[Rfam]
RNA sequence: UUAAGAACACUGGAGGCAGCGGUUCAUCGAUCUGUUCCCUGAAAGGCGAUAAACAAAAUAUAGCAACAGGAAUCGGUCGAUAAACCUCUGCAUCCAGCGCUUAACCC
Dot-bracket structure: ...........(((..(((.((((.(((((((..(((................................)))..))))))).)))).)))..)))............
MIR162_1 microRNA precursor family: a 107-nucleotide RNA from Nicotiana tabacum. It is one of the family's seed sequences. The family has 36 seed sequences and 270 matches in Rfam 15.1. Clan: MIR167 microRNA precursor clan. The family's consensus secondary structure was predicted with RNAalifold.